The family of this 104-nucleotide sequence from Cicer arietinum is "Small nucleolar RNA Z279/snoR105/snoR108".
Its family is annotated with nucleolus and RNA processing in the Gene Ontology.
It scores 92 bits against the family's covariance model.
A reference for the family is Marker et al. (2002), "Experimental RNomics: identification of 140 candidates for small non-messenger RNAs in the plant Arabidopsis thaliana", Curr Biol.
About the family: This family includes the plant snoRNAs known as Z279, snoR105 and snoR108.
RNA sequence: GGGAUAUGAGGAGUGGUUGAGUCUCGCUUAAAAUAUGCGAGUUGGGUGUUCGCCCCAAGCCUGGUUACGACAAUUGGGCACUCUCCGUUAAUCUAUCUGAUCCC
Numbered sequence: 001g002g003g004a005u006a007u008g009a010g011g012a013g014u015g016g017u018u019g020a021g022u023c024u025c026g027c028u029u030a031a032a033a034u035a036u037g038c039g040a041g042u043u044g045g046g047u048g049u050u051c052g053c054c055c056c057a058a059g060c061c062u063g064g065u066u067a068c069g070a071c072a073a074u075u076g077g078g079c080a081c082u083c084u085c086c087g088u089u090a091a092u093c094u095a096u097c098u099g100a101u102c103c104c
Base pairs, nucleotide, nucleotide: 001104002103003102004101014095015094016093018091023041024040025039026038027037044083045082046081047080048079049078050077062076063075064074065073